[Rfam]
RNA sequence: CCAUAAAAAAAUAAAUCAACUCAUAUAAAUUUGUGAUAUGGACAAAAGUUUCUACGGCUAACCUAAAUUAGCCACUAUGAGUAAAUUGCGAGCAGUU
Numbered sequence: 001c002c003a004u005a006a007a008a009a010a011a012u013a014a015a016u017c018a019a020c021u022c023a024u025a026u027a028a029a030u031u032u033g034u035g036a037u038a039u040g041g042a043c044a045a046a047a048g049u050u051u052c053u054a055c056g057g058c059u060a061a062c063c064u065a066a067a068u069u070a071g072c073c074a075c076u077a078u079g080a081g082u083a084a085a086u087u088g089c090g091a092g093c094a095g096u097u
Stems, first nucleotide, its partner, number of pairs: 019082007030046005056073006

A member of the RNA family "Purine riboswitch aptamer" from Psychrilyobacter sp. S5, 97 nucleotides long. The match comes from Rfam's covariance-model search (62 bits). The organism belongs to Psychrilyobacter, within Bacteria. The family is grouped with related families in Rfam's "Purine riboswitches".